mir-30 microRNA precursor family: a 71-nucleotide RNA from Muraenolepis orangiensis.
It scores 54 bits against the family's covariance model.
Taxonomically the source falls in Muraenolepis (Eukaryota, Deuterostomia, Neopterygii, Osteoglossocephalai).
[Rfam]
RNA sequence: CUAGGUACCGCAAACAACCUCUGGGGGCAGUAUACCGUAUACUGCCCCCAGAGGUUGUUUGCGGUACCUAG
Numbered sequence: 001c002u003a004g005g006u007a008c009c010g011c012a013a014a015c016a017a018c019c020u021c022u023g024g025g026g027g028c029a030g031u032a033u034a035c036c037g038u039a040u041a042c043u044g045c046c047c048c049c050a051g052a053g054g055u056u057g058u059u060u061g062c063g064g065u066a067c068c069u070a071g
Base pairs, nucleotide, nucleotide: 002070003069004068005067006066008064009063010062011061012060013059014058015057016056017055018054019053021051022050023049024048025047026046027045028044029043